[Rfam]
Annotation: The family of this 137-nucleotide sequence from Planotetraspora thailandica is "c-di-AMP riboswitch aptamer (ydaO/yuaA leader)". Taxonomically the source falls in Planotetraspora (Bacteria, Bacillati, Actinomycetota, Streptosporangiaceae). Rfam links the family to the GO terms cyclic-di-AMP binding and regulation of gene expression. The match comes from Rfam's covariance-model search (74 bits).
RNA sequence: GCAGCCGGUACGCCUAAUCCCGGGCGCCUCGCCCGGGAACCGGGGACCCAACUCGCACAUGGGGUGAAGGCACGUCGUGCCCGGGCAGCUCCAGCCCGAACCCGUCAGCUAACCCGGUCGGCAUGUGGAGAGGAGUG
Numbered sequence: 001g002c003a004g005c006c007g008g009u010a011c012g013c014c015u016a017a018u019c020c021c022g023g024g025c026g027c028c029u030c031g032c033c034c035g036g037g038a039a040c041c042g043g044g045g046a047c048c049c050a051a052c053u054c055g056c057a058c059a060u061g062g063g064g065u066g067a068a069g070g071c072a073c074g075u076c077g078u079g080c081c082c083g084g085g086c087a088g089c090u091c092c093a094g095c096c097c098g099a100a101c102c103c104g105u106c107a108g109c110u111a112a113c114c115c116g117g118u119c120g121g122c123a124u125g126u127g128g129a130g131a132g133g134a135g136u137g
Stems, first nucleotide, its partner, number of pairs: 012122003018038009039118006049061002062103003070080004083097004